[Rfam]
RNA: Small nucleolar RNA SNORA81
Organism: Marmota marmota
RNA sequence: ACCUUCUCUAAGGUCUGUGCUAAAAUUUCAGAAACUAGUAUCAUGUCUUGGUAUUUGAAAUAAAGCUAGCAGAGUAAGCACAAGAAUCAAAAAAUAGCUGAACAGCUGUAACAGAAGAAAAACUGAGAUAGACCUCUUCUAAGACACACAAAUUCCCACCUUCUAAGAGUUGGUAGAAUAAUA
Number, nucleotide and partner (000 for none) at each position: 001a000002c000003c000004u000005u000006c000007u000008c000009u000010a000011a000012g000013g000014u000015c074016u073017g000018u071019g070020c069021u068022a067023a000024a000025a000026u063027u062028u000029c000030a000031g055032a054033a000034a052035c051036u050037a049038g048039u000040a046041u045042c000043a000044u000045g041046u040047c000048u038049u037050g036051g035052u034053a000054u032055u031056u000057g000058a000059a000060a000061u000062a027063a026064a000065g000066c000067u022068a021069g020070c019071a018072g000073a016074g015075u000076a000077a000078g000079c000080a000081c000082a000083a000084g000085a000086a000087u000088c000089a000090a000091a000092a000093a000094a000095u000096a000097g000098c176099u175100g000101a174102a000103c172104a171105g170106c169107u000108g000109u000110a000111a000112c000113a000114g000115a000116a000117g000118a000119a000120a000121a000122a000123c000124u000125g154126a000127g153128a000129u151130a000131g149132a000133c000134c000135u000136c000137u000138u000139c000140u000141a000142a000143g000144a000145c000146a000147c000148a000149c131150a000151a129152a000153u127154u125155c000156c000157c000158a000159c000160c000161u000162u000163c000164u000165a000166a000167g000168a000169g106170u105171u104172g103173g000174u101175a099176g098177a000178a000179u000180a000181a000182u000183a000